[Rfam]
RNA: U5 spliceosomal RNA
Organism: Oncorhynchus kisutch
RNA sequence: UAUCUCUGGCUUCUCUUCAUUACGCACAAGCCUUUCGCCUUUUACUAAAGACUUCCGUGGAGAGGAACACUUACGAGUUCAACAUAUUUUUGGAGGGGCUUUGCUUCUUGCAGAGCC
Numbered sequence: 001u002a003u004c005u006c007u008g009g010c011u012u013c014u015c016u017u018c019a020u021u022a023c024g025c026a027c028a029a030g031c032c033u034u035u036c037g038c039c040u041u042u043u044a045c046u047a048a049a050g051a052c053u054u055c056c057g058u059g060g061a062g063a064g065g066a067a068c069a070c071u072u073a074c075g076a077g078u079u080c081a082a083c084a085u086a087u088u089u090u091u092g093g094a095g096g097g098g099c100u101u102u103g104c105u106u107c108u109u110g111c112a113g114a115g116c117c
Stems, first nucleotide, its partner, number of pairs: 004077003009068001011066009028054003032050004098116006